[Rfam]
RNA sequence: UUGGCCCACCGGUUCACGGCGCGCACCCGGCGCUGCCGACCCGGGGGAACC
Numbered sequence: 001u002u003g004g005c006c007c008a009c010c011g012g013u014u015c016a017c018g019g020c021g022c023g024c025a026c027c028c029g030g031c032g033c034u035g036c037c038g039a040c041c042c043g044g045g046g047g048a049a050c051c
Base pairs, nucleotide, nucleotide: 003051004050007047009044010043011042012041017038018037019036020035021033022032023031024030